Source information
The record is a 65-nucleotide RNA from Callorhinchus milii, which matches "Small nucleolar RNA SNORD98" in Rfam. The pairing is the family consensus, mapped onto this sequence. Lineage of the source: Eukaryota > Metazoa > Chimaeriformes > Callorhinchidae > Callorhinchus. A reference for the family is Galardi et al. (2002), "Purified box C/D snoRNPs are able to reproduce site-specific 2'-O-methylation of target RNA in vitro", Mol Cell Biol. Its family is annotated with RNA processing and nucleolus in the Gene Ontology. Rfam's curators put it in the seed alignment.
RNA sequence: GGGUAAUGAUGUCUAAUCCUAUUCCAUUGCUGAAAGCCCAAUGUGGAAAAAGACCAGCUGAACCC
Numbered sequence: 001g002g003g004u005a006a007u008g009a010u011g012u013c014u015a016a017u018c019c020u021a022u023u024c025c026a027u028u029g030c031u032g033a034a035a036g037c038c039c040a041a042u043g044u045g046g047a048a049a050a051a052g053a054c055c056a057g058c059u060g061a062a063c064c065c
Stems, first nucleotide, its partner, number of pairs: 001065004